[Rfam]
RNA: SAH (S-adenosyl-L-homocysteine) riboswitch aptamer
Organism: Parafrankia flexibilis
RNA sequence: CAGGUCGAGGGGCGCUGCAACGGGCCGGAGGUCCGCCACGCUCGGCUGGAACCACUCCGUAAGGGCGCCUCCCGUCA
Numbered sequence: 001c002a003g004g005u006c007g008a009g010g011g012g013c014g015c016u017g018c019a020a021c022g023g024g025c026c027g028g029a030g031g032u033c034c035g036c037c038a039c040g041c042u043c044g045g046c047u048g049g050a051a052c053c054a055c056u057c058c059g060u061a062a063g064g065g066c067g068c069c070u071c072c073c074g075u076c077a
Stems, first nucleotide, its partner, number of pairs: 003047006021035006